[Rfam]
RNA sequence: CUGGAGAGACUCCACGCCCGCACCACGGGGGGUGAAGCACCGAAGGAGCAAGGCACCGGGACCGUCCCGGCGCUGAAUCUCUCAGGUACCAAGGACAG
Numbered sequence: 001c002u003g004g005a006g007a008g009a010c011u012c013c014a015c016g017c018c019c020g021c022a023c024c025a026c027g028g029g030g031g032g033u034g035a036a037g038c039a040c041c042g043a044a045g046g047a048g049c050a051a052g053g054c055a056c057c058g059g060g061a062c063c064g065u066c067c068c069g070g071c072g073c074u075g076a077a078u079c080u081c082u083c084a085g086g087u088a089c090c091a092a093g094g095a096c097a098g
Stems, first nucleotide, its partner, number of pairs: 001098003010037002013034003039087003042083002046081003052074002